Shown here is a 102-nucleotide sequence from Jeotgalibacillus sp. R-1-5s-1, a member of the family "Purine riboswitch aptamer". Gene Ontology term of the family: purine nucleobase biosynthetic process. The family's consensus secondary structure is taken from published work.

[Rfam]
RNA sequence: UGAAACUUAAUAGUCUUUCGUCGUAUAACGUCGGGAAUAGGGCCCGAAAGUCUCUACCAAGUCACCGUAAAUGACUUGACUACGCGGAUUGAAUUCAUAUGU
Numbered sequence: 001u002g003a004a005a006c007u008u009a010a011u012a013g014u015c016u017u018u019c020g021u022c023g024u025a026u027a028a029c030g031u032c033g034g035g036a037a038u039a040g041g042g043c044c045c046g047a048a049a050g051u052c053u054c055u056a057c058c059a060a061g062u063c064a065c066c067g068u069a070a071a072u073g074a075c076u077u078g079a080c081u082a083c084g085c086g087g088a089u090u091g092a093a094u095u096c097a098u099a100u101g102u
Stems, first nucleotide, its partner, number of pairs: 018088002022084004031047005058078007
Dot-bracket structure: .................((..((((.....(((((.......)))))..........(((((((.......)))))))..))))..))..............